Notes:
Shown here is a 70-nucleotide RNA from Darwinula stevensoni, a member of the family "int-alpA RNA". Rfam classes the family as a small RNA. Pairs were carried over by alignment from the consensus structure, which is taken from published work.

RNA sequence: CCGGCAUCUACUCCGACGGGAGGAAAAGCGGCAACCUUCAACCGCCUGAUGCUGGGUUCUUCUUUGAAGG
Numbered sequence: 001c002c003g004g005c006a007u008c009u010a011c012u013c014c015g016a017c018g019g020g021a022g023g024a025a026a027a028g029c030g031g032c033a034a035c036c037u038u039c040a041a042c043c044g045c046c047u048g049a050u051g052c053u054g055g056g057u058u059c060u061u062c063u064u065u066g067a068a069g070g
Stems, first nucleotide, its partner, number of pairs: 001055008011022004028045004035070006
Rfam 15.1 lists 577 matches to the family in 491 species. The organism belongs to Darwinula, within Eukaryota. Acidobacteria (1 example), Planctomycetes (1 example), Proteobacteria.